Shown here is a 60-nucleotide sequence from Streptomyces sp. Ru87, a member of the family "Actino-pnp RNA".
[Rfam]
RNA sequence: GCCGGUCCUCGGUAGUGGCCGCCGGAAGCAGGCUUCCGGAGGCUUCGAUCGAAGACCGGC
Numbered sequence: 001g002c003c004g005g006u007c008c009u010c011g012g013u014a015g016u017g018g019c020c021g022c023c024g025g026a027a028g029c030a031g032g033c034u035u036c037c038g039g040a041g042g043c044u045u046c047g048a049u050c051g052a053a054g055a056c057c058g059g060c
Base pairs, nucleotide, nucleotide: 001060002059003058004057005056006055007054009052010051011050012049013048017044018043019042020041022039023038024037025036026035027034028033

The family's consensus secondary structure is taken from published work.
Taxonomically the source falls in Streptomyces (Bacteria, Actinomycetota, Actinomycetes, Kitasatosporales).
A search with the family's covariance model found it, with a score of 71 bits.